Annotation:
This 456-nucleotide RNA sequence from Oscillibacter sp. PC13 belongs to the Rfam family "Bacterial RNase P class A". Rfam links the family to the GO terms ribonuclease P activity, dimeric ribonuclease P complex and tRNA processing. Clan: RNaseP clan.

[Rfam]
RNA sequence: CGAGGAAAACAGACAGUCGCGUGGGCAGGCCGAAAGGCCGUCCAUGAGGAAAGUCCGGGCUCCACAGGGCAAGGAUAACGGGUAACGCCCGCCGAAGGCGACUUCAGGAAAAGUGCAACAGAGAUAUACCGCCUCGUCGUCACAAGCUUCCUGUUUCUUCGCUGCGCCGCAAGCGGCACCGCGGAAUAAGUAGCGCCUGCACUUUGCGGCAGACGGAGAGAUAGGAAGCUUGUGACGACGAGGUAAGGGUGGAAAGGCGAGGUAAGAGCUCACCCGACGGCUCGUAAAAGUGCCCGUCGCUGUAAACUCUAUCCGGAGCAACACCGGUAUGGGAGCAGGAGCAUAGGCUCCAUGGCUGGCCCGGCCGCUCCCGGGGUGGCUUGAGCGCUCUGGCGACAGAGCGUCUAGAUAGAUGACUGUCAAAUACAGAACCCGGCUUACAGUUUCCCUCGUGCG
Numbered sequence: 001c002g003a004g005g006a007a008a009a010c011a012g013a014c015a016g017u018c019g020c021g022u023g024g025g026c027a028g029g030c031c032g033a034a035a036g037g038c039c040g041u042c043c044a045u046g047a048g049g050a051a052a053g054u055c056c057g058g059g060c061u062c063c064a065c066a067g068g069g070c071a072a073g074g075a076u077a078a079c080g081g082g083u084a085a086c087g088c089c090c091g092c093c094g095a096a097g098g099c100g101a102c103u104u105c106a107g108g109a110a111a112a113g114u115g116c117a118a119c120a121g122a123g124a125u126a127u128a129c130c131g132c133c134u135c136g137u138c139g140u141c142a143c144a145a146g147c148u149u150c151c152u153g154u155u156u157c158u159u160c161g162c163u164g165c166g167c168c169g170c171a172a173g174c175g176g177c178a179c180c181g182c183g184g185a186a187u188a189a190g191u192a193g194c195g196c197c198u199g200c201a202c203u204u205u206g207c208g209g210c211a212g213a214c215g216g217a218g219a220g221a222u223a224g225g226a227a228g229c230u231u232g233u234g235a236c237g238a239c240g241a242g243g244u245a246a247g248g249g250u251g252g253a254a255a256g257g258c259g260a261g262g263u264a265a266g267a268g269c270u271c272a273c274c275c276g277a278c279g280g281c282u283c284g285u286a287a288a289a290g291u292g293c294c295c296g297u298c299g300c301u302g303u304a305a306a307c308u309c310u311a312u313c314c315g316g317a318g319c320a321a322c323a324c325c326g327g328u329a330u331g332g333g334a335g336c337a338g339g340a341g342c343a344u345a346g347g348c349u350c351c352a353u354g355g356c357u358g359g360c361c362c363g364g365c366c367g368c369u370c371c372c373g374g375g376g377u378g379g380c381u382u383g384a385g386c387g388c389u390c391u392g393g394c395g396a397c398a399g400a401g402c403g404u405c406u407a408g409a410u411a412g413a414u415g416a417c418u419g420u421c422a423a424a425u426a427c428a429g430a431a432c433c434c435g436g437c438u439u440a441c442a443g444u445u446u447c448c449c450u451c452g453u454g455c456g
Stems, first nucleotide, its partner, number of pairs: 001452005007446004012421007020046007028038001051439003055436005060318004068362002073314005079091004093107001094105004108309002113307002115303003129248002131244031256274002259271003276298001279294003283290001322378004331372006354366004385404008